[Rfam]
Background: Rfam assigns this 210-nucleotide sequence from Pseudomonas entomophila to the family "PhrS". The base pairs follow the family's consensus structure, which was predicted with CMfinder.
RNA sequence: AUCGGAUGACGGCACACCAAGGGAGGGGCCGACAUGUUCUUCGACAACGUGGUUAUCGCCGGUGUGGUAACGGUCGGGCUGAUGUUGGCGUUCUUCGCCGGUCUGGGAAUUUUCAUCUGGAAGGAUUCGAACAAGCGCAAGCAGCGCUGAUCCUUCCCGAUUCACGAGCACGCAAGGCAUUUAGGGCGACUUCGGUCGCCCAUUUUUUUG
Numbered sequence: 001a002u003c004g005g006a007u008g009a010c011g012g013c014a015c016a017c018c019a020a021g022g023g024a025g026g027g028g029c030c031g032a033c034a035u036g037u038u039c040u041u042c043g044a045c046a047a048c049g050u051g052g053u054u055a056u057c058g059c060c061g062g063u064g065u066g067g068u069a070a071c072g073g074u075c076g077g078g079c080u081g082a083u084g085u086u087g088g089c090g091u092u093c094u095u096c097g098c099c100g101g102u103c104u105g106g107g108a109a110u111u112u113u114c115a116u117c118u119g120g121a122a123g124g125a126u127u128c129g130a131a132c133a134a135g136c137g138c139a140a141g142c143a144g145c146g147c148u149g150a151u152c153c154u155u156c157c158c159g160a161u162u163c164a165c166g167a168g169c170a171c172g173c174a175a176g177g178c179a180u181u182u183a184g185g186g187c188g189a190c191u192u193c194g195g196u197c198g199c200c201c202a203u204u205u206u207u208u209u210g
Stems, first nucleotide, its partner, number of pairs: 010100004049059003077086003168178002171176001184201007
Rfam links the family to the GO term quorum sensing.
By type it is a small RNA.
The source organism's lineage runs through Bacteria, Pseudomonadati, Pseudomonadales, Pseudomonadaceae and Pseudomonas entomophila.
A reference for the family is Livny et al. (2006), "Identification of 17 Pseudomonas aeruginosa sRNAs and prediction of sRNA-encoding genes in 10 diverse pathogens using the bioinformatic tool sRNAPredict2", Nucleic Acids Res.